[Rfam]
RNA: Bacterial small subunit ribosomal RNA, nucleotides 1 to 541
Organism: Microlunatus parietis
RNA sequence: UCAACGGAGAGUUUGAUCCUGGCUCAGGACGAACGCUGGCGGCGUGCUUAACACAUGCAAGUCGAACGGUAAGGCCCCUUCGGGGGUACACGAGUGGCGAACGGGUGAGUAACACGUGAGUAACCUGCCCUUGACUUCGGAAUAAGCCCGAGAAAUCGGGUCUAAUACCGAAUGACCACCCUUGCGGACAUCUGCGAGGGUGCAAAGCUCCGGCGGUCAAGGAUGGACUCGCGGCCUAUCAGCUAGUUGGUGAGGUAACGGCUCACCAAGGCUUCGACGGGUAGCCGGCCUGAGAGGGCGACCGGCCACACUGGGACUGAGAUACGGCCCAGACUCCUACGGGAGGCAGCAGUGGGGAAUAUUGCACAAUGGGCGAAAGCCUGAUGCAGCAACGCCGCGUGCGGGAUGACGGCCUUCGGGUUGUAAACCGCUUUCAGUACCGACGAAGCGAAAGUGACGGUAGGUGCAGAAGAAGGACCGGCCAACUACGUGCCAGCAGCCGCGGUGAUACGUAGGGUCCGAGCGUUGUCCGGAAUUAUUG
Numbered sequence: 001u002c003a004a005c006g007g008a009g010a011g012u013u014u015g016a017u018c019c020u021g022g023c024u025c026a027g028g029a030c031g032a033a034c035g036c037u038g039g040c041g042g043c044g045u046g047c048u049u050a051a052c053a054c055a056u057g058c059a060a061g062u063c064g065a066a067c068g069g070u071a072a073g074g075c076c077c078c079u080u081c082g083g084g085g086g087u088a089c090a091c092g093a094g095u096g097g098c099g100a101a102c103g104g105g106u107g108a109g110u111a112a113c114a115c116g117u118g119a120g121u122a123a124c125c126u127g128c129c130c131u132u133g134a135c136u137u138c139g140g141a142a143u144a145a146g147c148c149c150g151a152g153a154a155a156u157c158g159g160g161u162c163u164a165a166u167a168c169c170g171a172a173u174g175a176c177c178a179c180c181c182u183u184g185c186g187g188a189c190a191u192c193u194g195c196g197a198g199g200g201u202g203c204a205a206a207g208c209u210c211c212g213g214c215g216g217u218c219a220a221g222g223a224u225g226g227a228c229u230c231g232c233g234g235c236c237u238a239u240c241a242g243c244u245a246g247u248u249g250g251u252g253a254g255g256u257a258a259c260g261g262c263u264c265a266c267c268a269a270g271g272c273u274u275c276g277a278c279g280g281g282u283a284g285c286c287g288g289c290c291u292g293a294g295a296g297g298g299c300g301a302c303c304g305g306c307c308a309c310a311c312u313g314g315g316a317c318u319g320a321g322a323u324a325c326g327g328c329c330c331a332g333a334c335u336c337c338u339a340c341g342g343g344a345g346g347c348a349g350c351a352g353u354g355g356g357g358a359a360u361a362u363u364g365c366a367c368a369a370u371g372g373g374c375g376a377a378a379g380c381c382u383g384a385u386g387c388a389g390c391a392a393c394g395c396c397g398c399g400u401g402c403g404g405g406a407u408g409a410c411g412g413c414c415u416u417c418g419g420g421u422u423g424u425a426a427a428c429c430g431c432u433u434u435c436a437g438u439a440c441c442g443a444c445g446a447a448g449c450g451a452a453a454g455u456g457a458c459g460g461u462a463g464g465u466g467c468a469g470a471a472g473a474a475g476g477a478c479c480g481g482c483c484a485a486c487u488a489c490g491u492g493c494c495a496g497c498a499g500c501c502g503c504g505g506u507g508a509u510a511c512g513u514a515g516g517g518u519c520c521g522a523g524c525g526u527u528g529u530c531c532g533g534a535a536u537u538a539u540u541g
Stems, first nucleotide, its partner, number of pairs: 009025005027531004032527006039398006045391002047356001052354003056351003061098003066095002069091002074087005105309003115233007124226002129222007137171004146161006177202007185194003207214002235281003242272003247269008284306004288299004311332005334345004362388001364387003370383005401431004411422004435472001437467005445458001475520005486515005496503002
Dot-bracket structure: ........(((((.......))))).((((.((((((.(((((((((....(((.(((..(((..((.((...(((((....)))))..))..)))))......(((.......(((((((..((...(((((((.((((.....((((((....))))))......)))).....(((((((.(((....))).)))))))....((....)).)))))))..))))))))).(((....(((..((((((((.......)))))))))))......)))..((((((((....))))...))))))).(((((............))))).((((....))))...)))))).).....(.(((...(((((....))))).)))).)).))))))..((((......((((....)))).....))))...(.(((((...(............)....)))))....)..(((((......(((((.....((....)).......)))))))))).))))))))))..........